[Rfam]
Background
DUF3268 RNA: a 117-nucleotide RNA sequence from Oscillibacter sp. 1-3. Pairs were carried over by alignment from the consensus structure, which is taken from published work. Rfam classes the family as a small RNA.

RNA sequence: AGCAAGACACUGCGUUCAGGCUCUCGAUACGCCGGGAUAACCUGGCGUCAGACCUGCCGGAACUUAGCAGGGAAUCGUUACGGAUCUGCUGUAUAGCCGGAUCCACACGACGCAGGU
Numbered sequence: 001a002g003c004a005a006g007a008c009a010c011u012g013c014g015u016u017c018a019g020g021c022u023c024u025c026g027a028u029a030c031g032c033c034g035g036g037a038u039a040a041c042c043u044g045g046c047g048u049c050a051g052a053c054c055u056g057c058c059g060g061a062a063c064u065u066a067g068c069a070g071g072g073a074a075u076c077g078u079u080a081c082g083g084a085u086c087u088g089c090u091g092u093a094u095a096g097c098c099g100g101a102u103c104c105a106c107a108c109g110a111c112g113c114a115g116g117u
Base pairs, nucleotide, nucleotide: 007117008116010115011114012113013112014111015110016109025077026076027075028074029048030047031046032045033044034043035042053071054070055069056068057067059065082104083103084102086099088097089096
Dot-bracket structure: ......((.(((((((........(((((((((((......)))))))....(((((.(.....).)))))..))))....(((.(.((......)).)..)))....)))))))))